Rfam assigns this 79-nucleotide RNA sequence from Shouchella oshimensis to the family "ZMP/ZTP riboswitch aptamer (pfl RNA motif)". The source organism's lineage runs through Bacteria, Bacillota, Bacilli, Shouchella and Shouchella oshimensis. Gene Ontology terms of the family: one-carbon metabolic process and regulation of purine nucleotide biosynthetic process. A search with the family's covariance model found it, with a score of 63 bits.
[Rfam]
RNA sequence: AAGACUCUAUGUAACUGGCGCAAUGUGGAUAACCACGAGGGAGCAUAGAGCGUACUUGCCGUGCGCCUGGGCAAAAGGG
Numbered sequence: 001a002a003g004a005c006u007c008u009a010u011g012u013a014a015c016u017g018g019c020g021c022a023a024u025g026u027g028g029a030u031a032a033c034c035a036c037g038a039g040g041g042a043g044c045a046u047a048g049a050g051c052g053u054a055c056u057u058g059c060c061g062u063g064c065g066c067c068u069g070g071g072c073a074a075a076a077g078g079g
Stems, first nucleotide, its partner, number of pairs: 005050008015040002017067005025036004056074005